[Rfam]
RNA sequence: GUAGAAGUUCCAUCUAUAAAUGGAUAGGACUUCAGUAUUAGUGUAUACCUUUUUUUGAAAAUAAAGGGAGCAAUACCAAACCUCUUGAUCUAUCAAGAAGUUUCUUAUUGCUC
Numbered sequence: 001g002u003a004g005a006a007g008u009u010c011c012a013u014c015u016a017u018a019a020a021u022g023g024a025u026a027g028g029a030c031u032u033c034a035g036u037a038u039u040a041g042u043g044u045a046u047a048c049c050u051u052u053u054u055u056u057g058a059a060a061a062u063a064a065a066g067g068g069a070g071c072a073a074u075a076c077c078a079a080a081c082c083u084c085u086u087g088a089u090c091u092a093u094c095a096a097g098a099a100g101u102u103u104c105u106u107a108u109u110g111c112u113c
Base pairs, nucleotide, nucleotide: 009024010023011022012021013020068113069112070111071110072109073108074107075106078103079102080101083098084097085096086095
Rfam assigns this 113-nucleotide sequence from Hippophae gyantsensis to the family "Plastid-psbA-1 3UTR RNA". Rfam's curators put it in the seed alignment. On this family, see Richter et al., Plant Commun 2023: "Retrograde signaling in plants: A critical review focusing on the GUN pathway and beyond". The family is grouped with related families in Rfam's "Plastid-psbA 3UTR RNA clan". By type it is a cis-regulatory element. Pairs were carried over by alignment from the consensus structure, which was predicted with LocARNA.